[Rfam]
RNA sequence: CUGCAUCAACUGACUGACCUUGAAUAAAUUGCUGUUCUGUUGGUUCGCAUUCAGAUGCAAAAGAAAAUAAUCCCUGAGCUUUCUGUCUGUCUUUGCCGCAGCACAAAUUGAACUGGAGAAUAUGUGA
Dot-bracket structure: .((((((...((.(.((((..((((........))))....)))).)))....))))))...........((.(((..(..(.((.((((.......))))..)).)..)...))).))........
Small nucleolar RNA SNORA31: a 127-nucleotide RNA from Castor canadensis. A search with the family's covariance model found it, with a score of 85 bits. The literature on the family includes a 2001 paper in EMBO J by Huttenhofer et al., "RNomics: an experimental approach that identifies 201 candidates for novel, small, non-messenger RNAs in mouse". ACA31 (SNORA31) belongs to the H/ACA class of snoRNAs which are thought to guide the sites of modification of uridines to pseudouridines. Its family is annotated with nucleolus and RNA processing in the Gene Ontology. Rfam 15.1 lists 2,094 matches to the family in 626 species. The organism belongs to Castor, within Eukaryota.